[Rfam]
RNA sequence: CCGUCAGGACGACCUGACCUUUGCGCGGGCAGCAGCCGGGACGACCCGG
Numbered sequence: 001c002c003g004u005c006a007g008g009a010c011g012a013c014c015u016g017a018c019c020u021u022u023g024c025g026c027g028g029g030c031a032g033c034a035g036c037c038g039g040g041a042c043g044a045c046c047c048g049g
Stems, first nucleotide, its partner, number of pairs: 003018006036049005
A member of the RNA family "Guanidine-II riboswitch aptamer (mini-ykkC)" from Rhodobacteraceae bacterium PARR1, 49 nucleotides long.
NCBI's taxonomy places the organism under Bacteria, Pseudomonadota, Alphaproteobacteria, Rhodobacterales, Paracoccaceae.
Its family is annotated with regulation of gene expression in the Gene Ontology.